[Rfam]
RNA sequence: AGGGUGUGCUCAGAGCAACAACCCUGAAGAGCGCUCCUCUGUUCACAGCACACCCAGCAGGGAUCUGGGUCCUUUUGUAAGGAGGGGCACAGAACUGUGGCUUCCCUACACAUACAGCCCUGCACCU
Numbered sequence: 001a002g003g004g005u006g007u008g009c010u011c012a013g014a015g016c017a018a019c020a021a022c023c024c025u026g027a028a029g030a031g032c033g034c035u036c037c038u039c040u041g042u043u044c045a046c047a048g049c050a051c052a053c054c055c056a057g058c059a060g061g062g063a064u065c066u067g068g069g070u071c072c073u074u075u076u077g078u079a080a081g082g083a084g085g086g087g088c089a090c091a092g093a094a095c096u097g098u099g100g101c102u103u104c105c106c107u108a109c110a111c112a113u114a115c116a117g118c119c120c121u122g123c124a125c126c127u
Stems, first nucleotide, its partner, number of pairs: 002055007013044005024033001068120002071117001076114003082109001084103003088099004
Record summary
Rfam assigns this 127-nucleotide RNA sequence from Sciurus vulgaris to the family "Small nucleolar RNA SNORA11". Rfam classes the family as an H/ACA-box small nucleolar RNA. A search with the family's covariance model found it, with a score of 71 bits. U107 (SNORA11) is a member of the H/ACA class of snoRNAs that guide the sites of modification of uridines to pseudouridines. This snoRNA was identified by RT-PCR from blood cells and its expression confirmed by Northern blot analysis.